The record is a 91-nucleotide RNA from Crotophaga sulcirostris, which matches "Small nucleolar RNA U83B" in Rfam.
[Rfam]
RNA sequence: GUUGUUCAGUAAUGAGGCAUAGAAUAAGCACUGAGCAGUAUCUUGACACCCAUGGGGAGUGGCUCUGCACUUUAUUUCUUCUGAGAGCAGC
Numbered sequence: 001g002u003u004g005u006u007c008a009g010u011a012a013u014g015a016g017g018c019a020u021a022g023a024a025u026a027a028g029c030a031c032u033g034a035g036c037a038g039u040a041u042c043u044u045g046a047c048a049c050c051c052a053u054g055g056g057g058a059g060u061g062g063c064u065c066u067g068c069a070c071u072u073u074a075u076u077u078c079u080u081c082u083g084a085g086a087g088c089a090g091c
Base pairs, nucleotide, nucleotide: 001091002090003089004088005087

The source organism's lineage runs through Eukaryota, Craniata, Tetrapoda, Coelurosauria and Crotophaga.
Gene Ontology terms of the family: RNA processing and nucleolus.
Rfam's curators write: U83B belongs to the C/D family of snoRNAs. U83B like U83A has no documented RNA target and they share the same host gene with the C/D box snoRNA U43 (RPL3). N.B. U83A/B/C have no sequence similarity with the U83 snoRNA that was cloned by Jady and Kiss (2000).
By type it is a C/D-box small nucleolar RNA.